[Rfam]
Nucleotides: 092
Base pairs, nucleotide, nucleotide: 001043002042003041004040005039010031011030012029013028014027015026016025064092065091066090067089068088069086070085071084072083073082
Number, partner (000 for none) and nucleotide at each position: 001043g002042g003041u004040u005039c006000g007000g008000g009000a010031g011030c012029g013028g014027u015026c016025c017000u018000u019000c020000g021000g022000g023000a024000c025016g026015g027014g028013c029012c030011g031010c032000a033000u034000g035000a036000a037000u038000g039005g040004a041003a042002c043001c044000a045000u046000c047000c048000c049000c050000c051000u052000c053000u054000c055000g056000c057000c058000a059000a060000g061000c062000g063000g064092c065091g066090u067089g068088c069086g070085c071084c072083u073082g074000u075000g076000g077000c078000c079000c080000g081000a082073c083072a084071g085070g086069u087000c088068g089067c090066g091065u092064g
Record summary:
This 92-nucleotide RNA from Aliigemmobacter aestuarii belongs to the Rfam family "Rhodo-rpoB RNA". The base pairs follow the family's consensus structure, which is taken from published work. It is annotated as a cis-regulatory element.